The record is a 149-nucleotide RNA sequence from Bacillus oleivorans, which matches "c-di-AMP riboswitch aptamer (ydaO/yuaA leader)" in Rfam. Lineage of the source: Bacteria > Bacillota > Caryophanales > Bacillaceae > Bacillus. A search with the family's covariance model found it, with a score of 107 bits.
RNA sequence: UAUUCUUUAUCGCUUAAUCCGAAAAAUGGAGCGGGGGACCCAAUUGCGUAGAUUUAAUCUACUCGGGGUGAAUCCUUAAUUAGAAGGAAGGGUUACUUCCAUAACCCAAAUCCGACAGCUAACCUCGUAAGCGUAUUGGGAGAGGAUGA
Number, nucleotide and partner (000 for none) at each position: 001u000002a000003u000004u000005c000006u000007u000008u000009a000010u000011c133012g132013c131014u130015u000016a000017a000018u030019c029020c028021g000022a000023a000024a000025a000026a000027u000028g020029g019030a018031g128032c127033g126034g125035g124036g123037g000038a000039c000040c000041c065042a000043a000044u000045u000046g000047c000048g000049u000050a000051g000052a000053u000054u000055u000056a000057a000058u000059c000060u000061a000062c000063u000064c000065g041066g113067g112068g111069u000070g000071a000072a000073u000074c087075c086076u085077u084078a000079a000080u000081u000082a000083g000084a077085a076086g075087g074088a000089a000090g107091g106092g105093u104094u000095a000096c000097u000098u000099c000100c000101a000102u000103a000104a093105c092106c091107c090108a000109a000110a000111u068112c067113c066114g000115a000116c000117a000118g000119c000120u000121a000122a000123c036124c035125u034126c033127g032128u031129a000130a014131g013132c012133g011134u000135a000136u000137u000138g000139g000140g000141a000142g000143a000144g000145g000146a000147u000148g000149a000